[Rfam]
RNA sequence: AUUGUCGCUUGGUUUGUGGUUCCAAGCUAGUCUGAAUAGUUGCCGAGUUCGCAGCCAAAUUAAAAGUGCUCGGAUGAGUGGUGCUGUUUAUGAUGAACGUCCCACGUGCU
Numbered sequence: 001a002u003u004g005u006c007g008c009u010u011g012g013u014u015u016g017u018g019g020u021u022c023c024a025a026g027c028u029a030g031u032c033u034g035a036a037u038a039g040u041u042g043c044c045g046a047g048u049u050c051g052c053a054g055c056c057a058a059a060u061u062a063a064a065a066g067u068g069c070u071c072g073g074a075u076g077a078g079u080g081g082u083g084c085u086g087u088u089u090a091u092g093a094u095g096a097a098c099g100u101c102c103c104a105c106g107u108g109c110u
Base pairs, nucleotide, nucleotide: 007027008026009025010024011023012022016105017104018103019102030094031093032092033090034089035088042082043081044080045079047075048074053070054069055068